RNA sequence: ACAGCCAGCUUUAACUGUGUGUGUGAUAUAUAUAUAUAUAUAUAUAUAUAUAUAUCACACACACAGUUAAAGCUGGCUGU
Numbered sequence: 001a002c003a004g005c006c007a008g009c010u011u012u013a014a015c016u017g018u019g020u021g022u023g024u025g026a027u028a029u030a031u032a033u034a035u036a037u038a039u040a041u042a043u044a045u046a047u048a049u050a051u052a053u054a055u056c057a058c059a060c061a062c063a064c065a066g067u068u069a070a071a072g073c074u075g076g077c078u079g080u
Base pairs, nucleotide, nucleotide: 004077005076006075009072010071011070012069013068014067015066016065017064021060022059023058024057025056026055030053031052032051
RNA: mir-11 microRNA precursor family
Organism: Leptobrachium leishanense